[Rfam]
RNA: mir-511 microRNA precursor family
RNA sequence: UAGAUACCCAUCAUGUCUUUUGCUCUACAGUCAGUAAAAUUUAUUUGUGAAUGUGUGGCAAAAGAUAGGAUGGGGGUCCA
Numbered sequence: 001u002a003g004a005u006a007c008c009c010a011u012c013a014u015g016u017c018u019u020u021u022g023c024u025c026u027a028c029a030g031u032c033a034g035u036a037a038a039a040u041u042u043a044u045u046u047g048u049g050a051a052u053g054u055g056u057g058g059c060a061a062a063a064g065a066u067a068g069g070a071u072g073g074g075g076g077u078c079c080a
Stems, first nucleotide, its partner, number of pairs: 003078003008073004014067011026055004031050003035047004